[Rfam]
RNA: PyrR binding site
RNA sequence: GGUAUCUUUAAACUGAUCCAGAGAGGUCAGGAAGGUAGACGUAUAAGGAUGAGUGUAUAAUUUUGCGGAAUUACUAUGCUUAUUUACCUUCUUAAAGAUUUCUUUAAGAAGGUUUUUUUA
Numbered sequence: 001g002g003u004a005u006c007u008u009u010a011a012a013c014u015g016a017u018c019c020a021g022a023g024a025g026g027u028c029a030g031g032a033a034g035g036u037a038g039a040c041g042u043a044u045a046a047g048g049a050u051g052a053g054u055g056u057a058u059a060a061u062u063u064u065g066c067g068g069a070a071u072u073a074c075u076a077u078g079c080u081u082a083u084u085u086a087c088c089u090u091c092u093u094a095a096a097g098a099u100u101u102c103u104u105u106a107a108g109a110a111g112g113u114u115u116u117u118u119u120a
Base pairs, nucleotide, nucleotide: 003037004036005035006034007033008032009031013030014029015028016027017026018025051081052080053079054078055077056076057075059072060071061070062069063068086113087112088111089110090109091108092107093106094105095104096103097102